[Rfam]
RNA sequence: CUAGAGAGUGAUCAGUUGCACACUGGUGGAGCCAUGAAAGUAUCAGGUGAUACAGGCACCACUCAGUACCACCCUGGUGACAAAAUCAAGUGCACGGGGGAGGGGGAGGAAUCAAC
Numbered sequence: 001c002u003a004g005a006g007a008g009u010g011a012u013c014a015g016u017u018g019c020a021c022a023c024u025g026g027u028g029g030a031g032c033c034a035u036g037a038a039a040g041u042a043u044c045a046g047g048u049g050a051u052a053c054a055g056g057c058a059c060c061a062c063u064c065a066g067u068a069c070c071a072c073c074c075u076g077g078u079g080a081c082a083a084a085a086u087c088a089a090g091u092g093c094a095c096g097g098g099g100g101a102g103g104g105g106g107a108g109g110a111a112u113c114a115a116c
Stems, first nucleotide, its partner, number of pairs: 006113002022067004026062004031057003040053005
Rfam assigns this 116-nucleotide RNA sequence from Nannospalax galili to the family "Small nucleolar RNA SNORD67". Pairs were carried over by alignment from the consensus structure. The match comes from Rfam's covariance-model search (77 bits). The source organism's lineage runs through Eukaryota, Dipnotetrapodomorpha, Eutheria, Glires and Nannospalax. About the family: snoRNA HBII-166 belongs to the C/D family of snoRNAs.